[Rfam]
RNA sequence: AUAAACUGUUGAGAACUUUUUGAAUCAUUAAGAUACUUGAUUCAAAAAAGUUCUCACAA
Number, nucleotide and partner (000 for none) at each position: 001a000002u000003a000004a000005a000006c000007u000008g000009u000010u056011g055012a054013g053014a052015a051016c050017u049018u048019u047020u046021u045022g043023a042024a041025u040026c039027a000028u000029u000030a000031a000032g000033a000034u000035a000036c000037u000038u000039g026040a025041u024042u023043c022044a000045a021046a020047a019048a018049a017050g016051u015052u014053c013054u012055c011056a010057c000058a000059a000
Rfam assigns this 59-nucleotide RNA from Klainedoxa gabonensis to the family "Plastid-ccsA-ndhD-1 3UTR RNA". Taxonomically the source falls in Klainedoxa (Eukaryota, Streptophytina, Mesangiospermae, Pentapetalae). Rfam's curators write: Plastid-ccsA-ndhD-1 is a non-coding RNA (ncRNA) recognised in plastids. It is annotated as a cis-regulatory element. Pairs were carried over by alignment from the consensus structure, which was predicted with LocARNA. It is one of the family's seed sequences. Its Rfam clan is "Plastid-ccsA_ndhD 3UTR RNA clan". Rfam 15.1 lists 1,322 matches to the family in 557 species.